[Rfam]
RNA sequence: AUAAAUAAGGGGAAUGAAGUACUCCCUAAGUUUGAUACUUAAACCGCUUAUAAAGCUGAUGACUUCUGUGAAACA
Numbered sequence: 001a002u003a004a005a006u007a008a009g010g011g012g013a014a015u016g017a018a019g020u021a022c023u024c025c026c027u028a029a030g031u032u033u034g035a036u037a038c039u040u041a042a043a044c045c046g047c048u049u050a051u052a053a054a055g056c057u058g059a060u061g062a063c064u065u066c067u068g069u070g071a072a073a074c075a
Base pairs, nucleotide, nucleotide: 010026011025012024013023016066017065018064019063020062046056047055048054

The record is a 75-nucleotide sequence from Cellulosilyticum lentocellum, which matches "Fluoride riboswitch aptamer (crcB RNA motif)" in Rfam. The family's consensus secondary structure is taken from published work. The match comes from Rfam's covariance-model search (46 bits). Rfam links the family to the GO terms response to fluoride and positive regulation of gene expression.